RNA sequence: UAAGAUAACAAAAUAGUUCCUUGUAUAAGUUUAGGGAUAUGGCCUAAACGUUUCUACCAAGCUACCUUAAAUAGCAUGACUACAAGGAUUACAUAUGUUUUU
Numbered sequence: 001u002a003a004g005a006u007a008a009c010a011a012a013a014u015a016g017u018u019c020c021u022u023g024u025a026u027a028a029g030u031u032u033a034g035g036g037a038u039a040u041g042g043c044c045u046a047a048a049c050g051u052u053u054c055u056a057c058c059a060a061g062c063u064a065c066c067u068u069a070a071a072u073a074g075c076a077u078g079a080c081u082a083c084a085a086g087g088a089u090u091a092c093a094u095a096u097g098u099u100u101u102u
Base pairs, nucleotide, nucleotide: 018088019087020086021085022084023083024082025081029049030048031047032046033045034044035043058078059077061075062074063073064072